[Rfam]
RNA sequence: GUGAGACCACACGACUGGCGAAGGUGGGCGACCACCGGGGAGUGACGUUCGUGGGCAUCGACCGCCUGGGUGCCCACC
Numbered sequence: 001g002u003g004a005g006a007c008c009a010c011a012c013g014a015c016u017g018g019c020g021a022a023g024g025u026g027g028g029c030g031a032c033c034a035c036c037g038g039g040g041a042g043u044g045a046c047g048u049u050c051g052u053g054g055g056c057a058u059c060g061a062c063c064g065c066c067u068g069g070g071u072g073c074c075c076a077c078c
Base pairs, nucleotide, nucleotide: 005049006048007047010044011043012042015039016038017066018065019064020063024035025034026033027032055073056072057071058070059069